[Rfam]
RNA sequence: AUUAUCAAAAUUCAGACUAAAUACGCCACGUCCUGUGGCAACGUCUGAAUGCUGCAUUCUGCGGG
Numbered sequence: 001a002u003u004a005u006c007a008a009a010a011u012u013c014a015g016a017c018u019a020a021a022u023a024c025g026c027c028a029c030g031u032c033c034u035g036u037g038g039c040a041a042c043g044u045c046u047g048a049a050u051g052c053u054g055c056a057u058u059c060u061g062c063g064g065g
Base pairs, nucleotide, nucleotide: 011049012048013047014046015045016044017043025039026038027037028036029035052064053063054062055061